[Rfam]
RNA sequence: CCCCUGGUGGUCUAGUGGUUAGGAUGCAGCACUCUCACUGCUGCGGCCCGGGUUCGUAUUCCGGUCAGGGAA
Numbered sequence: 001c002c003c004c005u006g007g008u009g010g011u012c013u014a015g016u017g018g019u020u021a022g023g024a025u026g027c028a029g030c031a032c033u034c035u036c037a038c039u040g041c042u043g044c045g046g047c048c049c050g051g052g053u054u055c056g057u058a059u060u061c062c063g064g065u066c067a068g069g070g071a072a
Base pairs, nucleotide, nucleotide: 002070003069004068005067006066007065010025011024012023013022027043028042029041030040031039048064049063050062051061052060